RNA sequence: UGUCAACGAGUACCAGUGCCAAGUUCCAGCUGGCUGGUCGGCAACCCUCCACCGCGGCGGGGUGCCCUGGAUAAAAGACACGGCUCCAGUCCGCAACGGGCAUGGAGCAAGCGCGGGUU
Numbered sequence: 001u002g003u004c005a006a007c008g009a010g011u012a013c014c015a016g017u018g019c020c021a022a023g024u025u026c027c028a029g030c031u032g033g034c035u036g037g038u039c040g041g042c043a044a045c046c047c048u049c050c051a052c053c054g055c056g057g058c059g060g061g062g063u064g065c066c067c068u069g070g071a072u073a074a075a076a077g078a079c080a081c082g083g084c085u086c087c088a089g090u091c092c093g094c095a096a097c098g099g100g101c102a103u104g105g106a107g108c109a110a111g112c113g114c115g116g117g118u119u
Base pairs, nucleotide, nucleotide: 001080002079003078004077010039012038013037014036015035016034017033022031023030040066041065042064045062046061047060049057050056083108084107085106086105087104088103091100092099
RNA: SAM (S-adenosyl methionine) riboswitch aptamer